[Rfam]
The record is a 600-nucleotide part of an RNA from Lotharella oceanica, which matches "Eukaryotic large subunit ribosomal RNA" in Rfam. Rfam 15.1 lists 107,465 matches to the family in 2,616 species. Lineage of the source: Eukaryota > Sar > Rhizaria > Cercozoa > Lotharella.
RNA sequence: GAAGACCCUGUUGAGCUUGACUCUAUUCUGGCGCUGAGCGGCGUCUUAGGAGGUGUAGCAUAGGUGGGAGCGUAACGCGAUACUGAAAUACCACUACUCUCAAGAUCGCCUCUCUAACCCCGCUACCGCAGGCACGAGAAGGGUGUCGCGCGUCACCCCCGUGACAACCGUAUACCCGGAUCACCGCAUACCACCCUUCACACACAGGAGAGGGGUGGUACACCUGCACACGGGGGACACCGCUAGCUGGGGAGUUCGGCUGGGGCGGUACAUCCGUUAAAAGACAACGCGGAUGUCCUACGAUCAGCUCACCAAGGACAGAAACCUCGGGUGGGGUAUAAGGAUAGAAGCUGAUUUGAUACGGGUCCCAAGUAAGGACCCGCACUGCGGAAGCAUGGCCUACCGAUCCUUUAGUUCUUCUGGUCGUGAAGCUAGAGGUGUCAGAAAAGUUACCACAGGGAUAACUGGUUCGUGGCAGCCAAGCGUUCAUAGCGACGUUGCUUUUUGAUUCUUCGAUGUCGGCUCUUCCUAUCAUUGUGAAGCAGGAUUCACAAAGCGUUGGAUUGUUCACCCACAAAUAGGGGACGUGAGCUGGGUUUA
Numbered sequence: 001g002a003a004g005a006c007c008c009u010g011u012u013g014a015g016c017u018u019g020a021c022u023c024u025a026u027u028c029u030g031g032c033g034c035u036g037a038g039c040g041g042c043g044u045c046u047u048a049g050g051a052g053g054u055g056u057a058g059c060a061u062a063g064g065u066g067g068g069a070g071c072g073u074a075a076c077g078c079g080a081u082a083c084u085g086a087a088a089u090a091c092c093a094c095u096a097c098u099c100u101c102a103a104g105a106u107c108g109c110c111u112c113u114c115u116a117a118c119c120c121c122g123c124u125a126c127c128g129c130a131g132g133c134a135c136g137a138g139a140a141g142g143g144u145g146u147c148g149c150g151c152g153u154c155a156c157c158c159c160c161g162u163g164a165c166a167a168c169c170g171u172a173u174a175c176c177c178g179g180a181u182c183a184c185c186g187c188a189u190a191c192c193a194c195c196c197u198u199c200a201c202a203c204a205c206a207g208g209a210g211a212g213g214g215g216u217g218g219u220a221c222a223c224c225u226g227c228a229c230a231c232g233g234g235g236g237a238c239a240c241c242g243c244u245a246g247c248u249g250g251g252g253a254g255u256u257c258g259g260c261u262g263g264g265g266c267g268g269u270a271c272a273u274c275c276g277u278u279a280a281a282a283g284a285c286a287a288c289g290c291g292g293a294u295g296u297c298c299u300a301c302g303a304u305c306a307g308c309u310c311a312c313c314a315a316g317g318a319c320a321g322a323a324a325c326c327u328c329g330g331g332u333g334g335g336g337u338a339u340a341a342g343g344a345u346a347g348a349a350g351c352u353g354a355u356u357u358g359a360u361a362c363g364g365g366u367c368c369c370a371a372g373u374a375a376g377g378a379c380c381c382g383c384a385c386u387g388c389g390g391a392a393g394c395a396u397g398g399c400c401u402a403c404c405g406a407u408c409c410u411u412u413a414g415u416u417c418u419u420c421u422g423g424u425c426g427u428g429a430a431g432c433u434a435g436a437g438g439u440g441u442c443a444g445a446a447a448a449g450u451u452a453c454c455a456c457a458g459g460g461a462u463a464a465c466u467g468g469u470u471c472g473u474g475g476c477a478g479c480c481a482a483g484c485g486u487u488c489a490u491a492g493c494g495a496c497g498u499u500g501c502u503u504u505u506u507g508a509u510u511c512u513u514c515g516a517u518g519u520c521g522g523c524u525c526u527u528c529c530u531a532u533c534a535u536u537g538u539g540a541a542g543c544a545g546g547a548u549u550c551a552c553a554a555a556g557c558g559u560u561g562g563a564u565u566g567u568u569c570a571c572c573c574a575c576a577a578a579u580a581g582g583g584g585a586c587g588u589g590a591g592c593u594g595g596g597u598u599u600a
Base pairs, nucleotide, nucleotide: 007459008458009457010456012455013454014451015450016449017448018447020255021254022253023252028246029245030244031243032242033241036114037113038112040110041109042108043107046103047102049100050099051098052097063095064094065093066092067091070078071077118235119234120233121232122231129226130225131224132223136156138154139153173220174219175218176217258271259269260268261267272294273293274292275291276290277289297398298397303355304354305353306352307351308350309335310334312330313329315327316326317325336345337344360384362382363381364380365379366378367377368376386395387394388393409437410436411435412434413433414432417431418430419429420428468509469508470507472506474502475501476500477499478498479497483493484492520595521593522592523591524590525587526584527583528582529581530580533558536553537552538551539550540549541548560574561573562572564570